[Rfam]
RNA sequence: ACCGGCACGGAUGCCGGUGGUUCCAAACUUCCAAGAGUUUUAGACGCAAGUCUAAAACUCUAAGCUGAAAAAUGUACAAGGAUGUACAUUUUUCAGCGGAU
Numbered sequence: 001a002c003c004g005g006c007a008c009g010g011a012u013g014c015c016g017g018u019g020g021u022u023c024c025a026a027a028c029u030u031c032c033a034a035g036a037g038u039u040u041u042a043g044a045c046g047c048a049a050g051u052c053u054a055a056a057a058c059u060c061u062a063a064g065c066u067g068a069a070a071a072a073u074g075u076a077c078a079a080g081g082a083u084g085u086a087c088a089u090u091u092u093u094c095a096g097c098g099g100a101u
Stems, first nucleotide, its partner, number of pairs: 001018006034061011064097014
Rfam assigns this 101-nucleotide RNA from Treponema denticola to the family "TD-2 RNA". The source organism's lineage runs through Bacteria, Spirochaetia, Treponemataceae, Treponema and Treponema denticola. Rfam 15.1 lists 310 matches to the family in 11 species. Rfam classes the family as a small RNA.